[Rfam]
RNA sequence: GGGGGAGGGGCCACAGCAGAAGCGUUCACAUCGCGGCCCCUGUCAGAUUCUGGUGAAUCUGCGAAUUCUGCU
Numbered sequence: 001g002g003g004g005g006a007g008g009g010g011c012c013a014c015a016g017c018a019g020a021a022g023c024g025u026u027c028a029c030a031u032c033g034c035g036g037c038c039c040c041u042g043u044c045a046g047a048u049u050c051u052g053g054u055g056a057a058u059c060u061g062c063g064a065a066u067u068c069u070g071c072u
Base pairs, nucleotide, nucleotide: 007040008039009038010037011036012035015072016071017070018069019068020067021066022034023033024032044061045060046059047058048057049056050055
Annotation:
Mammalian CPEB3 ribozyme: a 72-nucleotide RNA sequence from Aotus nancymaae. Rfam 15.1 lists 5,706 matches to the family in 197 species. From the family's description: The mammalian CPEB3 ribozyme is a self cleaving RNA located in the second intron of the CPEB3 gene which belongs to a family of genes regulating messenger RNA polyadenylation. The family's consensus secondary structure is taken from published work.